[Rfam]
RNA sequence: UUGGCGGUGAACUCCCAGAUGCCGUCACCGUCCACGAGGGUUUGCGCGCCGAAGUAGUCGCCGUCCUUGACCACGCCCAGCGCGGUCUCGUCACCGUAGGGGCCAGGGCCGGUCUUGGUGAUCUUGCCGUGUGCGAUGAGGUAGACCCGGUCGGCCCGGUGCCCGAAUUCGACGAGCACAUCGCCUGCCGCCACUUCCUGCUGUUCGAAUCGGCGGGCGAGUUCGUCGAGCACUUCCUCGUCGUCGUAACCCUUGAGCGGCUUCAGUUCUCCCAGUUCCGCCGGGAUCACGCUGACCUCGGCGCCGGCCUUCGAGAAGGUCACCCGUCCGUCGCCGACCGCGUAAUUGAGCCGCCGGUUGACCCGGUAGGCACCGCCGUUCACCUGAACCCAUUCGAGGGAUUUCAGCAGCCACCGGGACGAAAUUCCCUGCAUCUGCGGAACGGAUUUGGUCGUCGUCGCCAGGUUGCGCGCGGCGGCGCGCCCCAAACUCAGCUGCGGGUUUUCCG
Dot-bracket structure: .....((((....(...((.(...(.(((.((..((((((((...(((((((.((..(((.((.(..(......(.((...(((((......)))))...)))....)..).....(.(..((...(.(((.(((..(.(..((....((...(.(.((((..((.......))..).....))).).).))..))).)..))).)..)).)...))..).).)).)))..)).((...((.(((....(..(.((((.(..........)...)))).)..).))).))...))..))))))).)))))))).)).))).)..).))(((........))).........((.(((....((.....))..))).)).......)....))))((.((((.(((.(.......))))......)))).)).....((.(..((.(((((((.......)))))).).))..).))((.((..(.((........)).).))...)).

The record is a 508-nucleotide RNA sequence from Amycolatopsis keratiniphila, which matches "Saccharopolyspora sRNA 350" in Rfam. It is annotated as an antisense RNA. Rfam 15.1 lists 1,170 matches to the family in 705 species. It scores 170 bits against the family's covariance model. Gene Ontology term of the family: regulation of secondary metabolite biosynthetic process.